[Rfam]
Nucleotides: 188
Stems, first nucleotide, its partner, number of pairs: 011175004018061009062170006072110001111155003119132004135149004
Number, partner (000 for none) and nucleotide at each position: 001000c002000c003000g004000g005000a006000u007000g008000g009000a010000c011175c012174g013173c014172c015000g016000a017000a018061u019060c020059c021058u022057g023056c024055c025054a026053c027000c028000g029000u030000c031000c032000g033000g034000a035000a036000u037000c038000c039000g040000c041000a042000c043000c044000c045000a046000u047000c048000c049000a050000c051000g052000u053026g054025u055024g056023g057022c058021a059020g060019g061018a062170g063169c064168g065167g066166g067165g068000g069000a070000c071000c072110c073000a074000g075000g076000u077000a078000g079000a080000a081000c082000g083000c084000c085000g086000u087000c088000a089000c090000c091000g092000g093000a094000a095000u096000u097000c098000c099000g100000g101000a102000a103000a104000c105000g106000g107000c108000u109000c110072g111155g112154g113153g114000u115000g116000a117000a118000g119132u120131c121130g122129c123000g124000c125000a126000a127000g128000u129122g130121c131120g132119a133000c134000c135149g136148g137147g138146c139000a140000u141000c142000u143000c144000c145000a146138g147137c148136c149135c150000g151000a152000a153113c154112c155111c156000g157000a158000c159000a160000g161000c162000u163000c164000a165067c166066c167065u168064c169063g170062c171000a172014g173013g174012c175011g176000c177000c178000g179000g180000a181000g182000a183000g184000g185000a186000a187000u188000u
A member of the RNA family "c-di-AMP riboswitch aptamer (ydaO/yuaA leader)" from Streptomyces purpureus, 188 nucleotides long. Taxonomically the source falls in Streptomyces (Bacteria, Actinomycetota, Kitasatosporales, Streptomycetaceae).